Overview: This 79-nucleotide RNA from Myotis myotis belongs to the Rfam family "mir-9198 microRNA precursor family". Taxonomically the source falls in Myotis (Eukaryota, Deuterostomia, Teleostomi, Dipnotetrapodomorpha). Rfam links the family to the GO terms miRNA-mediated post-transcriptional gene silencing and RISC complex. The base pairs follow the family's consensus structure, which was predicted with RNAalifold.
RNA sequence: GCCACCACUUGCACCCGCUGCCGGUGCCCGGUGCUGGUCCUGAUCACUUGGCACCAUCAGCGGGUGCAAGCGGUGGCUG
Numbered sequence: 001g002c003c004a005c006c007a008c009u010u011g012c013a014c015c016c017g018c019u020g021c022c023g024g025u026g027c028c029c030g031g032u033g034c035u036g037g038u039c040c041u042g043a044u045c046a047c048u049u050g051g052c053a054c055c056a057u058c059a060g061c062g063g064g065u066g067c068a069a070g071c072g073g074u075g076g077c078u079g
Stems, first nucleotide, its partner, number of pairs: 004074003008070013023055006